Annotation: Shown here is an 86-nucleotide RNA from Equus caballus, a member of the family "mir-9014 microRNA precursor family". Gene Ontology terms of the family: RISC complex and miRNA-mediated post-transcriptional gene silencing. NCBI's taxonomy places the organism under Eukaryota, Tetrapoda, Amniota, Boreoeutheria, Equus. It scores 75 bits against the family's covariance model.
RNA sequence: GAUGCCAUGGGAGGGAUCCCAAUCCAGCCUUAGGAAAAGAAACCUUCCAUGGGAGUCUUGGAGAUUGGCGGCCAUCAAAUGACUUA
Numbered sequence: 001g002a003u004g005c006c007a008u009g010g011g012a013g014g015g016a017u018c019c020c021a022a023u024c025c026a027g028c029c030u031u032a033g034g035a036a037a038a039g040a041a042a043c044c045u046u047c048c049a050u051g052g053g054a055g056u057c058u059u060g061g062a063g064a065u066u067g068g069c070g071g072c073c074a075u076c077a078a079a080u081g082a083c084u085u086a
Stems, first nucleotide, its partner, number of pairs: 002085001004083001006081003011076002014073002017070001019068006028061002037059004043053003